[Rfam]
RNA sequence: CAGUGUUGUCACCCAUAAAGUAGAAAGCACUACUAAACUUCAAUGCAAAGUGUAGUGUUUCCUACUUUAUGGAUGAGUAUACUGA
Numbered sequence: 001c002a003g004u005g006u007u008g009u010c011a012c013c014c015a016u017a018a019a020g021u022a023g024a025a026a027g028c029a030c031u032a033c034u035a036a037a038c039u040u041c042a043a044u045g046c047a048a049a050g051u052g053u054a055g056u057g058u059u060u061c062c063u064a065c066u067u068u069a070u071g072g073a074u075g076a077g078u079a080u081a082c083u084g085a
Base pairs, nucleotide, nucleotide: 014071015070016069017068018067019066020065021064022063023062026059027058028057029056030055031054032053033052
Rfam assigns this 85-nucleotide sequence from Gadus morhua to the family "mir-142 microRNA precursor family". The match comes from Rfam's covariance-model search (105 bits). A reference for the family is Linsen et al. (2010), "Small RNA expression and strain specificity in the rat", BMC Genomics. The source organism's lineage runs through Eukaryota, Eumetazoa, Chordata, Acanthomorphata and Gadus. The family's consensus secondary structure was predicted with RNAalifold. Rfam 15.1 lists 1,555 matches to the family in 631 species.